[Rfam]
DUF805b RNA: a 35-nucleotide sequence from Sphingobacterium sp. ML3W.
RNA sequence: AAGGAAUACACCGAAAAUCCUGAACAGAGUAGACA
Dot-bracket structure: .((((......[.....))))..........]...